[Rfam]
Nucleotides: 105
Stems, first nucleotide, its partner, number of pairs: 006102001008100004013095008022086007030078003
Number, partner (000 for none) and nucleotide at each position: 001000u002000a003000g004000a005000a006102a007000a008100a009099c010098a011097u012000c013095a014094u015093u016092g017091a018090g019089u020088g021000c022086a023085g024084c025083g026082u027081u028080g029000a030078u031077g032076a033000a034000a035000u036000u037000c038000u039000u040000g041000g042000u043000c044000u045000u046000g047000g048000a049000g050000c051000u052000u053000g054000c055000a056000u057000u058000u059000c060000a061000u062000g063000g064000c065000u066000u067000u068000g069000c070000g071000u072000g073000a074000u075000u076032u077031c078030a079000c080028c081027a082026g083025c084024g085023c086022u087000u088020c089019a090018u091017u092016c093015g094014a095013u096000u097011a098010u099009g100008u101000c102006u103000u104000u105000u